RNA: mir-283 microRNA precursor family
RNA sequence: AGUACGGUAAAUGGCUAAAUAUCAGCUGGUAAUUCUGGGGUCAUUACCCCCAGAUUAUCAGUUGGUAUAAAGUUAUUUUCCGUU
Numbered sequence: 001a002g003u004a005c006g007g008u009a010a011a012u013g014g015c016u017a018a019a020u021a022u023c024a025g026c027u028g029g030u031a032a033u034u035c036u037g038g039g040g041u042c043a044u045u046a047c048c049c050c051c052a053g054a055u056u057a058u059c060a061g062u063u064g065g066u067a068u069a070a071a072g073u074u075a076u077u078u079u080c081c082g083u084u
Stems, first nucleotide, its partner, number of pairs: 011076006019068011032056001034054006